[Rfam]
Gag/pol translational readthrough site: a 62-nucleotide RNA from Mus musculus. Rfam 15.1 lists 3,368 matches to the family in 94 species. The match comes from Rfam's covariance-model search (70 bits). Rfam links the family to the GO term viral translational readthrough. Lineage of the source: Eukaryota > Vertebrata > Rodentia > Muridae > Mus.
RNA sequence: UAGGGGAAUCAGGGCUCGGACCCCCUCCCCGAGCCUAGGGUAACCCUGAUGGUAGAGGGGAC
Numbered sequence: 001u002a003g004g005g006g007a008a009u010c011a012g013g014g015c016u017c018g019g020a021c022c023c024c025c026u027c028c029c030c031g032a033g034c035c036u037a038g039g040g041u042a043a044c045c046c047u048g049a050u051g052g053u054a055g056a057g058g059g060g061a062c
Stems, first nucleotide, its partner, number of pairs: 008041003012036004016031001018029002022060006